[Rfam]
Record summary: The record is a 67-nucleotide sequence from Pipistrellus kuhlii, which matches "mir-9256 microRNA precursor family" in Rfam.
RNA sequence: CUUUACACCGAGUGGCCAGAUGAUGAUGAUCUCUGAACGCAUAAUCAUCUGGCCACUCGGUGUGUAU
Number, nucleotide and partner (000 for none) at each position: 001c000002u000003u000004u064005a063006c062007a061008c060009c059010g058011a057012g056013u055014g054015g053016c052017c051018a000019g049020a048021u047022g046023a045024u044025g000026a042027u041028g040029a000030u000031c000032u000033c000034u000035g000036a000037a000038c000039g000040c028041a027042u026043a000044a024045u023046c022047a021048u020049c019050u000051g017052g016053c015054c014055a013056c012057u011058c010059g009060g008061u007062g006063u005064g004065u000066a000067u000
The family has 8 seed sequences and 31,772 matches in Rfam 15.1.